[Rfam]
Nucleotides: 273
Stems, first nucleotide, its partner, number of pairs: 006024006025271004033251004039231002044068006053061002075227003080111002085106003089102001091100003115132005135223001137218001140216002143213003149201004160191009237246002253265004
Number, partner (000 for none) and nucleotide at each position: 001000g002000a003000u004000a005000a006024a007023g008022a009021g010020u011019g012000u013000g014000a015000g016000a017000g018000a019011c020010a021009c022008u023007c024006u025271c026270g027269c028268c029000g030000a031000a032000a033251g034250u035249c036248c037000a038000a039231g040230g041000g042000u043000u044068c045067c046066u047065g048064c049063g050000c051000a052000a053061u054060g055000c056000u057000a058000a059000u060054c061053a062000g063049c064048g065047c066046a067045g068044g069000g070000u071000u072000a073000g074000u075227c076226g077225g078000c079000c080111c081110c082000u083000a084000a085106g086105g087104c088000g089102a090000g091100g092099c093098a094000g095000a096000a097000a098093u099092g100091c101000g102089u103000a104087g105086u106085c107000g108000a109000u110081g111080g112000g113000a114000a115132g116131c117130a118129g119128g120000u121000u122000a123000a124000u125000a126000u127000u128119c129118c130117u131116g132115c133000a134000c135223c136000a137218g138000u139000g140216g141215g142000u143213a144212g145211u146000g147000a148000c149201g150200g151199a152198u153000c154000u155000c156000g157000u158000g159000u160191g161190u162189c163188g164187u165186c166185a167184g168183u169000c170000c171000u172000u173000a174000u175000c176000g177000g178000a179000u180000u181000g182000a183168a184167c185166u186165g187164g188163c189162g190161g191160c192000g193000a194000a195000g196000a197000g198152g199151u200150c201149c202000c203000u204000g205000g206000a207000a208000a209000u210000a211145g212144c213143u214000c215141c216140c217000a218137c219000a220000u221000u222000a223135g224000a225077c226076c227075g228000u229000a230040c231039c232000c233000c234000a235000a236000a237246c238245c239000g240000a241000c242000a243000c244000a245238g246237g247000u248036g249035g250034a251033c252000u253265g254264g255263u256262a257000g258000a259000g260000c261000a262256u263255a264254c265253c266000a267000a268028g269027g270026c271025g272000c273000u
Background:
The family of this 273-nucleotide part of an RNA from Maricaulis maris is "Bacterial large subunit ribosomal RNA". Its family is annotated with ribosome and structural constituent of ribosome in the Gene Ontology. The source organism's lineage runs through Bacteria, Alphaproteobacteria, Maricaulaceae, Maricaulis and Maricaulis maris.